[Rfam]
RNA: Small nucleolar RNA Z102/R77
RNA sequence: GAAUGAGGUGAUGAUUAGGUUAAUUUCCCUAUUGGUUUGAUCGCUGAAAUGAUGGCUAAAAUGUAUUAGCUCUAACUGAUCAUUC
Numbered sequence: 001g002a003a004u005g006a007g008g009u010g011a012u013g014a015u016u017a018g019g020u021u022a023a024u025u026u027c028c029c030u031a032u033u034g035g036u037u038u039g040a041u042c043g044c045u046g047a048a049a050u051g052a053u054g055g056c057u058a059a060a061a062u063g064u065a066u067u068a069g070c071u072c073u074a075a076c077u078g079a080u081c082a083u084u085c
Stems, first nucleotide, its partner, number of pairs: 002084004039057001043056003